Annotation:
The record is a 107-nucleotide sequence from Candidatus Galacturonatibacter soehngenii, which matches "Fluoride riboswitch aptamer (crcB RNA motif)" in Rfam. The family's consensus secondary structure is taken from published work. The match comes from Rfam's covariance-model search (35 bits).
[Rfam]
RNA sequence: AUUAAUCAUGGGAAUGAAGUUCUCCCAGAGGUAUUAACCCAAACCGCAACCAGAAUGUAACUGGUUAUACGUAUUGACGUAUAGAUGCUGAUGACUUCUGUGAUACU
Numbered sequence: 001a002u003u004a005a006u007c008a009u010g011g012g013a014a015u016g017a018a019g020u021u022c023u024c025c026c027a028g029a030g031g032u033a034u035u036a037a038c039c040c041a042a043a044c045c046g047c048a049a050c051c052a053g054a055a056u057g058u059a060a061c062u063g064g065u066u067a068u069a070c071g072u073a074u075u076g077a078c079g080u081a082u083a084g085a086u087g088c089u090g091a092u093g094a095c096u097u098c099u100g101u102g103a104u105a106c107u
Stems, first nucleotide, its partner, number of pairs: 010026004016098006046088003